Rfam assigns this 118-nucleotide RNA sequence to the family "LOOT RNA". By type it is a small RNA.
RNA sequence: UGCCUAAACCUACCGCAAGGUAGGCAUGGCAGAAAGACCUAACAGGCAGUAAGCUCUUCGUCAGAGCGCUUGUUAGGCUGUAGUCCGAAAGGAUUGCAGGUCGGGGGAAACUUCGAUC
Numbered sequence: 001u002g003c004c005u006a007a008a009c010c011u012a013c014c015g016c017a018a019g020g021u022a023g024g025c026a027u028g029g030c031a032g033a034a035a036g037a038c039c040u041a042a043c044a045g046g047c048a049g050u051a052a053g054c055u056c057u058u059c060g061u062c063a064g065a066g067c068g069c070u071u072g073u074u075a076g077g078c079u080g081u082a083g084u085c086c087g088a089a090a091g092g093a094u095u096g097c098a099g100g101u102c103g104g105g106g107g108a109a110a111c112u113u114c115g116a117u118c
Base pairs, nucleotide, nucleotide: 001031002030003029004028009024010023011022012021013020014019038077039076040075041074042073043072044071045070046069047068053067054066055065056064057063079098080097081096082095083094084093085092086091099118100117101116102115103114104113105112106111
Dot-bracket structure: ((((....((((((....))))))...))))......((((((((((.....(((((.....))))))))))))))).((((((((....))))))))((((((((....))))))))